The family of this 107-nucleotide sequence from Heyndrickxia oleronia is "TPP riboswitch aptamer (THI element)".
RNA sequence: AGAUUCUGCUAGGGGAGCCGAGUUUGGCUGAGAGAGAUCAAAGAAGAUUGAUACCCUUUAAACCUGAUCCGGGUGAUGCCGGCGUAGGGAAGCGGUCCAAACCUAUU
Numbered sequence: 001a002g003a004u005u006c007u008g009c010u011a012g013g014g015g016a017g018c019c020g021a022g023u024u025u026g027g028c029u030g031a032g033a034g035a036g037a038u039c040a041a042a043g044a045a046g047a048u049u050g051a052u053a054c055c056c057u058u059u060a061a062a063c064c065u066g067a068u069c070c071g072g073g074u075g076a077u078g079c080c081g082g083c084g085u086a087g088g089g090a091a092g093c094g095g096u097c098c099a100a101a102c103c104u105a106u107u
Base pairs, nucleotide, nucleotide: 006095007094008093009092010091011057012056013055014054017028018027019026020025036049037048038047039046063088064087065086066085069082070081071080072079
The source organism's lineage runs through Bacteria, Bacillati, Bacillota, Caryophanales and Heyndrickxia.